This 444-nucleotide sequence from Saccharomyces kudriavzevii belongs to the Rfam family "RNA of unknown function 20".

RNA sequence: ACGUGGGGAUUUUUGAAUUACAUGAUUAUGCAACCAUACAGAAACCUUACAUAAGCGCGAGCUAUUGAAUACUAGGUUCAAAAAGUAAAACACUACUACCAGCGGAAAUGGUGGAACUAGUAGACGCACUUGAUCUUACUAUUAGAUUAUACACUCAGUACGAGGAACCUCGAGGGAAGUAAUGCUCCUUCUCUGUCCCACAAACAUCUUUACUCGUUAUUCCUUGAGCCUCUAAGAUUACUUGAAUGAAGUCGUCACUAAAAAAGAGACUCGUCAUAAAAAACUGAGCUGAAAAAAGAGUAGCUUUGGCUUGCUUAAAAUGUUUAGGAAAUAUAAAAGUGACAUCUAAUAUGACUAAUAUAAAAAUAGUAAAAAUAUGGUAUACAAAGAAAAAAUACACAUAAUGUAUUAAAGAAGAAAAGAACCUGCAAAUAUUGAGAAUAG
Numbered sequence: 001a002c003g004u005g006g007g008g009a010u011u012u013u014u015g016a017a018u019u020a021c022a023u024g025a026u027u028a029u030g031c032a033a034c035c036a037u038a039c040a041g042a043a044a045c046c047u048u049a050c051a052u053a054a055g056c057g058c059g060a061g062c063u064a065u066u067g068a069a070u071a072c073u074a075g076g077u078u079c080a081a082a083a084a085g086u087a088a089a090a091c092a093c094u095a096c097u098a099c100c101a102g103c104g105g106a107a108a109u110g111g112u113g114g115a116a117c118u119a120g121u122a123g124a125c126g127c128a129c130u131u132g133a134u135c136u137u138a139c140u141a142u143u144a145g146a147u148u149a150u151a152c153a154c155u156c157a158g159u160a161c162g163a164g165g166a167a168c169c170u171c172g173a174g175g176g177a178a179g180u181a182a183u184g185c186u187c188c189u190u191c192u193c194u195g196u197c198c199c200a201c202a203a204a205c206a207u208c209u210u211u212a213c214u215c216g217u218u219a220u221u222c223c224u225u226g227a228g229c230c231u232c233u234a235a236g237a238u239u240a241c242u243u244g245a246a247u248g249a250a251g252u253c254g255u256c257a258c259u260a261a262a263a264a265a266g267a268g269a270c271u272c273g274u275c276a277u278a279a280a281a282a283a284c285u286g287a288g289c290u291g292a293a294a295a296a297a298g299a300g301u302a303g304c305u306u307u308g309g310c311u312u313g314c315u316u317a318a319a320a321u322g323u324u325u326a327g328g329a330a331a332u333a334u335a336a337a338a339g340u341g342a343c344a345u346c347u348a349a350u351a352u353g354a355c356u357a358a359u360a361u362a363a364a365a366a367u368a369g370u371a372a373a374a375a376u377a378u379g380g381u382a383u384a385c386a387a388a389g390a391a392a393a394a395a396u397a398c399a400c401a402u403a404a405u406g407u408a409u410u411a412a413a414g415a416a417g418a419a420a421a422g423a424a425c426c427u428g429c430a431a432a433u434a435u436u437g438a439g440a441a442u443a444g
Stems, first nucleotide, its partner, number of pairs: 003429005010420004033381006055062002069077002084094002104233003112226001113224002116221001118219002132168001134165004141155001143153001173194005243261001248258001286307003290303001292301001325348004395409005